[Rfam]
RNA sequence: UCGUGAACAAGCCACACCCCGGGCGACCGGGGGCCGGAAAGCCGCGGGUCUCAGCAGAGACGGCCGGGUUGCCACC
Numbered sequence: 001u002c003g004u005g006a007a008c009a010a011g012c013c014a015c016a017c018c019c020c021g022g023g024c025g026a027c028c029g030g031g032g033g034c035c036g037g038a039a040a041g042c043c044g045c046g047g048g049u050c051u052c053a054g055c056a057g058a059g060a061c062g063g064c065c066g067g068g069u070u071g072c073c074a075c076c
Stems, first nucleotide, its partner, number of pairs: 012037002017032006040070004045066003048061003